The record is a 297-nucleotide sequence, which matches "Archaeal RNase P" in Rfam. A reference for the family is Frank and Pace (1998), "Ribonuclease P: unity and diversity in a tRNA processing ribozyme", Annu Rev Biochem. It is annotated as a ribozyme. Rfam's curators put it in the seed alignment. Ribonuclease P (RNase P) is a ubiquitous endoribonuclease, found in archaea, bacteria and eukarya as well as chloroplasts and mitochondria. Its best characterised activity is the generation of mature 5'-ends of tRNAs by cleaving the 5'-leader elements of precursor-tRNAs.
RNA sequence: GGGAUUAGGAGGACCACUGACAGUGUACGACACUGAGGAAAGUCCCCUCUGCACAGGUGCAGGUGGCCCGUCGCAAGGCGGGUGUCCGGGAGGGCAGGCUCUGUAGAAGAAACGAAUCGGCUCGGGCGCACGAUGAAUCCGAAAGGAGGAGAUUUCCCGAUGCUGACUGAGACGAACAACCCCACCGCAGCAAGUCCAAACAGUUCUGUUGAUGGCACCGAUAGGAACGGGUAGGAUGCAAAGUUGAAUGUGGUCAACCAGCAAUGGUGAACAGAAAGGGGCUUACUCCCUAAUCCC
Numbered sequence: 001g002g003g004a005u006u007a008g009g010a011g012g013a014c015c016a017c018u019g020a021c022a023g024u025g026u027a028c029g030a031c032a033c034u035g036a037g038g039a040a041a042g043u044c045c046c047c048u049c050u051g052c053a054c055a056g057g058u059g060c061a062g063g064u065g066g067c068c069c070g071u072c073g074c075a076a077g078g079c080g081g082g083u084g085u086c087c088g089g090g091a092g093g094g095c096a097g098g099c100u101c102u103g104u105a106g107a108a109g110a111a112a113c114g115a116a117u118c119g120g121c122u123c124g125g126g127c128g129c130a131c132g133a134u135g136a137a138u139c140c141g142a143a144a145g146g147a148g149g150a151g152a153u154u155u156c157c158c159g160a161u162g163c164u165g166a167c168u169g170a171g172a173c174g175a176a177c178a179a180c181c182c183c184a185c186c187g188c189a190g191c192a193a194g195u196c197c198a199a200a201c202a203g204u205u206c207u208g209u210u211g212a213u214g215g216c217a218c219c220g221a222u223a224g225g226a227a228c229g230g231g232u233a234g235g236a237u238g239c240a241a242a243g244u245u246g247a248a249u250g251u252g253g254u255c256a257a258c259c260a261g262c263a264a265u266g267g268u269g270a271a272c273a274g275a276a277a278g279g280g281g282c283u284u285a286c287u288c289c290c291u292a293a294u295c296c297c
Stems, first nucleotide, its partner, number of pairs: 001297003005293005010287002012255006021035005040284003044281005049190004054220001056218001062186005067082005083096005097181002102178003117166005122160005138146002194237004203228005